This 69-nucleotide RNA sequence from Phaeobacter gallaeciensis belongs to the Rfam family "Glycine riboswitch aptamer".

[Rfam]
RNA sequence: CUCUGGAGAGACCCCGGCGUAGGUACCGGGGCGCCGAAGGGAUAGCGAUCUCAGGCGCAAGGGACAGAG
Numbered sequence: 001c002u003c004u005g006g007a008g009a010g011a012c013c014c015c016g017g018c019g020u021a022g023g024u025a026c027c028g029g030g031g032c033g034c035c036g037a038a039g040g041g042a043u044a045g046c047g048a049u050c051u052c053a054g055g056c057g058c059a060a061g062g063g064a065c066a067g068a069g
Base pairs, nucleotide, nucleotide: 001069002068003067004066005065012031013030014029015028016027017026033056034055035054036052037051040050041049